[Rfam]
RNA sequence: CCAGUUGAUGAUGAAGAUCUCACCGAGAAGAUCCUGGACGAGCUUGAUGAAGAUUAUAGAGAACUGGUGCUUGCAAUUCAAGCAAGAGAUAAUUCUAUCUCAUUUGAUGAGCUUCAUGAGAAACUGUUAACGUUUGAAG
Numbered sequence: 001c002c003a004g005u006u007g008a009u010g011a012u013g014a015a016g017a018u019c020u021c022a023c024c025g026a027g028a029a030g031a032u033c034c035u036g037g038a039c040g041a042g043c044u045u046g047a048u049g050a051a052g053a054u055u056a057u058a059g060a061g062a063a064c065u066g067g068u069g070c071u072u073g074c075a076a077u078u079c080a081a082g083c084a085a086g087a088g089a090u091a092a093u094u095c096u097a098u099c100u101c102a103u104u105u106g107a108u109g110a111g112c113u114u115c116a117u118g119a120g121a122a123a124c125u126g127u128u129a130a131c132g133u134u135u136g137a138a139g
Stems, first nucleotide, its partner, number of pairs: 005137004088108001090106003